[Rfam]
Overview:
The record is a 69-nucleotide RNA from Artemisia annua, which matches "Plastid-clpP 5UTR RNA" in Rfam. Plastid clpP is a non-coding RNA (ncRNA) recognised in plastids. It was found in the prime untranslated region (5UTR) of a protease complex subunit (clpP) in plastids, suggesting a posible cis-regulatory function.
RNA sequence: AGUUUUGUUCAUAGGAAUAAAGAGAAUCAUAUUUAUUCUAUACUCGAUAAGUACCAAUAUGCAAUAAGG
Numbered sequence: 001a002g003u004u005u006u007g008u009u010c011a012u013a014g015g016a017a018u019a020a021a022g023a024g025a026a027u028c029a030u031a032u033u034u035a036u037u038c039u040a041u042a043c044u045c046g047a048u049a050a051g052u053a054c055c056a057a058u059a060u061g062c063a064a065u066a067a068g069g
Stems, first nucleotide, its partner, number of pairs: 003022002006019005043068002051060003